[Rfam]
RNA sequence: UUGCAAUUUCAAGACCAAAGCAGAAGCACUCAUGGUGUGGCCCUGUCAGAUUCCAACAACUCUGCAAAUUCUUCU
Numbered sequence: 001u002u003g004c005a006a007u008u009u010c011a012a013g014a015c016c017a018a019a020g021c022a023g024a025a026g027c028a029c030u031c032a033u034g035g036u037g038u039g040g041c042c043c044u045g046u047c048a049g050a051u052u053c054c055a056a057c058a059a060c061u062c063u064g065c066a067a068a069u070u071c072u073u074c075u
Stems, first nucleotide, its partner, number of pairs: 013042001015040002019075002022072004026038003047064004052059001